[Rfam]
RNA sequence: CGAGCUUGCUGGACAAUCGCUUCUUUCGAGAAGAGGAAAGUCCGGGCUCCAUAGAGCAGAGUGCCAGGUAAUCCCUGGGGGGCGCGAGCCUACGGAAAGUGCAGCAGAAAGUAUACCGCCAGCAUUGUUGGUAAGGGUGAAAAGGUGCGGUAAGAGCGCACCGCGCGACUGGUAACAGUUCGUGGCGAUGGUAAACCCCACUCGGAGCAAGACCAAAUAGAAACCCUAAGGUGUGGCUCGCGCUGGGUUUGGGUAGGUUGCUUGAGCCUGAUGGUGACGUCAGGCCUAGAUGAAUGAUUGUCCUCGACAGAACCCGGCUUAUAGGCAAGCUCAAAAU
Dot-bracket structure: .(((((((((((((((((.(((((....)))))....[[[.[[[[[((((...[[[[.((((((((((.....)))))(((((....)))).)((...((((.............((((((((...))))))..)).......((((((.......))))))(((((((((....))).))))).)....))..)))))))))))))...((((......((((((...(((((.]]]]))))))))))).....))))......((((((((....))))))))..........)))))))..........]]]]]]]].).))))))))).....
Source information:
Shown here is a 337-nucleotide sequence from Oleiphilus sp. HI0066, a member of the family "Bacterial RNase P class A". Its family is annotated with ribonuclease P activity, dimeric ribonuclease P complex and tRNA processing in the Gene Ontology. Pairs were carried over by alignment from the consensus structure, which is taken from published work. It scores 328 bits against the family's covariance model.